[Rfam]
RNA: Y RNA
RNA sequence: GGCUGCUCCGAAGGUAGUGAGUUCUUGAUUGUUUACAGUCAGUUACUGAUGGAACUCCUUGUUCUACUUUUCCCCCCUUCUCACUACUGCACUUGACUAGUCUCUU
Numbered sequence: 001g002g003c004u005g006c007u008c009c010g011a012a013g014g015u016a017g018u019g020a021g022u023u024c025u026u027g028a029u030u031g032u033u034u035a036c037a038g039u040c041a042g043u044u045a046c047u048g049a050u051g052g053a054a055c056u057c058c059u060u061g062u063u064c065u066a067c068u069u070u071u072c073c074c075c076c077c078u079u080c081u082c083a084c085u086a087c088u089g090c091a092c093u094u095g096a097c098u099a100g101u102c103u104c105u106u
Stems, first nucleotide, its partner, number of pairs: 001102005007096002010094002014090002016085006037068003041065002